[Rfam]
RNA sequence: ACACUUGGGCAAGAUAAACCGCAUAUAAGCGAUUAAUAUGGAAUCGCGUUUCUACCGGGCACCGUAAAAGCCUGUCUAUGGAGGUCCCAUGAAAGCAA
Numbered sequence: 001a002c003a004c005u006u007g008g009g010c011a012a013g014a015u016a017a018a019c020c021g022c023a024u025a026u027a028a029g030c031g032a033u034u035a036a037u038a039u040g041g042a043a044u045c046g047c048g049u050u051u052c053u054a055c056c057g058g059g060c061a062c063c064g065u066a067a068a069a070g071c072c073u074g075u076c077u078a079u080g081g082a083g084g085u086c087c088c089a090u091g092a093a094a095g096c097a098a
Stems, first nucleotide, its partner, number of pairs: 019083001022080004029047006056074005